[Rfam]
RNA sequence: CUCUUAUAAAGAGAGGUGGAGGGACUGGCCCGAUGAAACCCGGCAACCGCCCAUUUGUGGAAUGGUGCCAAAUCCUGCAGGAUGAUUAUCCUGAAAGAUGAGAG
Number, nucleotide and partner (000 for none) at each position: 001c104002u103003c102004u101005u100006a099007u098008a000009a000010a000011g000012a000013g041014a000015g040016g039017u038018g000019g000020a000021g031022g030023g029024a000025c077026u000027g075028g074029c023030c022031c021032g000033a000034u000035g000036a000037a000038a017039c016040c015041c013042g069043g068044c067045a066046a000047c065048c064049g000050c060051c059052c000053a000054u000055u000056u000057g000058u000059g051060g050061a000062a000063u000064g048065g047066u045067g044068c043069c042070a000071a000072a000073u096074c028075c027076u000077g025078c093079a092080g091081g090082a089083u088084g000085a000086u000087u000088a083089u082090c081091c080092u079093g078094a000095a000096a073097g000098a007099u006100g005101a004102g003103a002104g001

Overview:
The family of this 104-nucleotide RNA sequence from Syntrophomonas zehnderi is "SAM riboswitch aptamer (S box leader)". Pairs were carried over by alignment from the consensus structure, which is taken from published work.